[Rfam]
Nucleotides: 083
Stems, first nucleotide, its partner, number of pairs: 003081006
Number, partner (000 for none) and nucleotide at each position: 001000c002000a003081u004080u005079u006078g007077u008076u009000a010000a011000c012000a013000a014000g015000a016000u017000g018000u019000u020000u021000c022000u023000u024000a025000c026000u027000a028000a029000a030000a031000a032000u033000g034000u035000c036000u037000g038000a039000a040000c041000u042000u043000a044000c045000g046000a047000a048000c049000u050000c051000c052000a053000u054000a055000g056000u057000g058000a059000u060000u061000u062000c063000a064000g065000u066000g067000c068000a069000u070000u071000a072000c073000u074000g075000a076008g077007a078006c079005a080004a081003g082000c083000u
Background:
The family of this 83-nucleotide RNA from Balearica regulorum is "Small nucleolar RNA SNORD72". Taxonomically the source falls in Balearica regulorum (Eukaryota, Teleostomi, Amniota, Theropoda). The match comes from Rfam's covariance-model search (52 bits). For this family Rfam cites "RNomics: an experimental approach that identifies 201 candidates for novel, small, non-messenger RNAs in mouse" (Huttenhofer et al., EMBO J, 2001). snoRNA HBII-240 belongs to the CD family of snoRNAs. It is the human orthologue of the mouse MBII-240 and is predicted to guide 2'O-ribose methylation of the large 28S rRNA at residue U4590.